[Rfam]
RNA sequence: UCCCAUGCUGUGGCCCUCUAGAGGAAGCACUUUCUGUUUGUUGUCUGAGAAAAAACAAGGUGCUUCCCUUUAGAGCGUUACCAUUUGGGA
Numbered sequence: 001u002c003c004c005a006u007g008c009u010g011u012g013g014c015c016c017u018c019u020a021g022a023g024g025a026a027g028c029a030c031u032u033u034c035u036g037u038u039u040g041u042u043g044u045c046u047g048a049g050a051a052a053a054a055a056c057a058a059g060g061u062g063c064u065u066c067c068c069u070u071u072a073g074a075g076c077g078u079u080a081c082c083a084u085u086u087g088g089g090a
Base pairs, nucleotide, nucleotide: 001090002089003088004087005086007084010081011080012079013078014077016075017074018073020071021070022069023068024067025065026064027063028062029061030060031059032058033057037055038054
A member of the RNA family "mir-515 microRNA precursor family" from Rhinopithecus roxellana, 90 nucleotides long.
Taxonomically the source falls in Rhinopithecus (Eukaryota, Chordata, Vertebrata, Colobinae).
The base pairs follow the family's consensus structure, which was predicted with RNAalifold.
The literature on the family includes a 2005 paper in Nat Genet by Bentwich et al., "Identification of hundreds of conserved and nonconserved human microRNAs".